[Rfam]
RNA: RT-17 RNA
RNA sequence: UGCCUUGGCUCAUGCCAAAACAUAACAAACUUCAACGCUGUAUUAGUAGACGCCGAGGCGGUUGAAAAUUCAGCAAAAACAAACAU
Numbered sequence: 001u002g003c004c005u006u007g008g009c010u011c012a013u014g015c016c017a018a019a020a021c022a023u024a025a026c027a028a029a030c031u032u033c034a035a036c037g038c039u040g041u042a043u044u045a046g047u048a049g050a051c052g053c054c055g056a057g058g059c060g061g062u063u064g065a066a067a068a069u070u071c072a073g074c075a076a077a078a079a080c081a082a083a084c085a086u
Stems, first nucleotide, its partner, number of pairs: 006017004042069002049063001052059002